[Rfam]
RNA sequence: AUGGUGAGAAUCUAACAGCGAGGUAUUUAGUUCCUACGUCGUAUUUAAUGGUAGGAACUUUAUACCGUGCUCUUGGAUUUACCUAA
Numbered sequence: 001a002u003g004g005u006g007a008g009a010a011u012c013u014a015a016c017a018g019c020g021a022g023g024u025a026u027u028u029a030g031u032u033c034c035u036a037c038g039u040c041g042u043a044u045u046u047a048a049u050g051g052u053a054g055g056a057a058c059u060u061u062a063u064a065c066c067g068u069g070c071u072c073u074u075g076g077a078u079u080u081a082c083c084u085a086a
Stems, first nucleotide, its partner, number of pairs: 012076003017071004022066005029059009
RNA: mir-276 microRNA precursor family
Organism: Cotesia typhae